[Rfam]
RNA sequence: CUGUCGGCAGGCGAUGAAGCCCGCUUGCACCACCGCCACCGCGGCUGAUGGCUUCUACCGGCAG
Numbered sequence: 001c002u003g004u005c006g007g008c009a010g011g012c013g014a015u016g017a018a019g020c021c022c023g024c025u026u027g028c029a030c031c032a033c034c035g036c037c038a039c040c041g042c043g044g045c046u047g048a049u050g051g052c053u054u055c056u057a058c059c060g061g062c063a064g
Stems, first nucleotide, its partner, number of pairs: 010025004016055006035045003
RNA: Fluoride riboswitch aptamer (crcB RNA motif)
Organism: Amycolatopsis sp. M39